[Rfam]
RNA sequence: CUCGCAGCUAGACGGAAAGACCCCGUGGAGCUUUACUGCAGCUUGGUAUUGUACUUUGUUGUGGUGUGUACAGGAUAGGUGGGAGGCUGAGAACCCGGCUCGCCAGGGUCGGGGGAGCCGCCGGUGGGAUACCACCCUCGCCACAGCGGAGUACUAACCUGGUGGUGUGAAGAGCACCACAGGGACAGUGCUAGGCAGGCAGUUUGACUGGGGCGGUCGCCUCCAAAAAGGUAACGGAGGCGCACGAAGGUCGGCUCAGGUUGGUUGGAAACCAACCGGAGAGUGUAAGGGCAAAAGCCGGCUUGACUGUGAGGCUGACAGGCCGAGCAGGAGGGAAACCUGGUCCUAGUGACCUUGCGGCACUGAGUGGAAAGGCCGUUGAUCAGCGGAUAAAAGUUACCCCGGGGAUAACAGGCUAAUACCGCCCGAGAGUUCACAUCGACGGCGGUGUUUGGCACCUCGAUGUCGGCUCAUCGCAUCCUGGGGCUGGAGCAGGUCCCAAGGGUUAGGCUGUUCGCCUAUUAAAGCGGUACGUGAGCUGGGUUCAGAACGUCGUGAGACAGUUCGGUCCCUAUCUGCUGCGAGCGGA
Numbered sequence: 001c002u003c004g005c006a007g008c009u010a011g012a013c014g015g016a017a018a019g020a021c022c023c024c025g026u027g028g029a030g031c032u033u034u035a036c037u038g039c040a041g042c043u044u045g046g047u048a049u050u051g052u053a054c055u056u057u058g059u060u061g062u063g064g065u066g067u068g069u070a071c072a073g074g075a076u077a078g079g080u081g082g083g084a085g086g087c088u089g090a091g092a093a094c095c096c097g098g099c100u101c102g103c104c105a106g107g108g109u110c111g112g113g114g115g116a117g118c119c120g121c122c123g124g125u126g127g128g129a130u131a132c133c134a135c136c137c138u139c140g141c142c143a144c145a146g147c148g149g150a151g152u153a154c155u156a157a158c159c160u161g162g163u164g165g166u167g168u169g170a171a172g173a174g175c176a177c178c179a180c181a182g183g184g185a186c187a188g189u190g191c192u193a194g195g196c197a198g199g200c201a202g203u204u205u206g207a208c209u210g211g212g213g214c215g216g217u218c219g220c221c222u223c224c225a226a227a228a229a230g231g232u233a234a235c236g237g238a239g240g241c242g243c244a245c246g247a248a249g250g251u252c253g254g255c256u257c258a259g260g261u262u263g264g265u266u267g268g269a270a271a272c273c274a275a276c277c278g279g280a281g282a283g284u285g286u287a288a289g290g291g292c293a294a295a296a297g298c299c300g301g302c303u304u305g306a307c308u309g310u311g312a313g314g315c316u317g318a319c320a321g322g323c324c325g326a327g328c329a330g331g332a333g334g335g336a337a338a339c340c341u342g343g344u345c346c347u348a349g350u351g352a353c354c355u356u357g358c359g360g361c362a363c364u365g366a367g368u369g370g371a372a373a374g375g376c377c378g379u380u381g382a383u384c385a386g387c388g389g390a391u392a393a394a395a396g397u398u399a400c401c402c403c404g405g406g407g408a409u410a411a412c413a414g415g416c417u418a419a420u421a422c423c424g425c426c427c428g429a430g431a432g433u434u435c436a437c438a439u440c441g442a443c444g445g446c447g448g449u450g451u452u453u454g455g456c457a458c459c460u461c462g463a464u465g466u467c468g469g470c471u472c473a474u475c476g477c478a479u480c481c482u483g484g485g486g487c488u489g490g491a492g493c494a495g496g497u498c499c500c501a502a503g504g505g506u507u508a509g510g511c512u513g514u515u516c517g518c519c520u521a522u523u524a525a526a527g528c529g530g531u532a533c534g535u536g537a538g539c540u541g542g543g544u545u546c547a548g549a550a551c552g553u554c555g556u557g558a559g560a561c562a563g564u565u566c567g568g569u570c571c572c573u574a575u576c577u578g579c580u581g582c583g584a585g586c587g588g589a
Stems, first nucleotide, its partner, number of pairs: 001585008010577003014572002022406004027402002029398005035203004042195007051154016068137001078136005085119003094113008158183003162180006206218004219241006242387001244344002250302006256282002259277006283292002307330004313324003332341003355381001357379005363374002415456003419453001420450007430440002467542001468540004472534001473531005480505002483500006507521005548566004552561003

About this RNA: Shown here is a 589-nucleotide part of an RNA from Kosmotoga olearia, a member of the family "Bacterial large subunit ribosomal RNA".